[Rfam]
Shown here is a 100-nucleotide RNA from Hypericibacter adhaerens, a member of the family "Pyrrolysine insertion sequence mttB". The family's consensus secondary structure was predicted with CMfinder. Taxonomically the source falls in Hypericibacter (Bacteria, Pseudomonadota, Alphaproteobacteria, Dongiaceae).
RNA sequence: AUGACGGACUCCAAGGUGCCCGACGCACAGGCCGGCUAUGAGAAGGCCUACAACCAUGCGCUGGUCGGCAAUGCGGGCGCCAACCUGAUUUAUGAAUCGG
Numbered sequence: 001a002u003g004a005c006g007g008a009c010u011c012c013a014a015g016g017u018g019c020c021c022g023a024c025g026c027a028c029a030g031g032c033c034g035g036c037u038a039u040g041a042g043a044a045g046g047c048c049u050a051c052a053a054c055c056a057u058g059c060g061c062u063g064g065u066c067g068g069c070a071a072u073g074c075g076g077g078c079g080c081c082a083a084c085c086u087g088a089u090u091u092a093u094g095a096a097u098c099g100g
Base pairs, nucleotide, nucleotide: 003012025032033063034062035061077098
The match comes from Rfam's covariance-model search (58 bits). Gene Ontology term of the family: pyrrolysine incorporation. By type it is a cis-regulatory element. On this family, see Theil Have et al., BMC Bioinformatics 2013: "Effects of using coding potential, sequence conservation and mRNA structure conservation for predicting pyrroly-sine containing genes".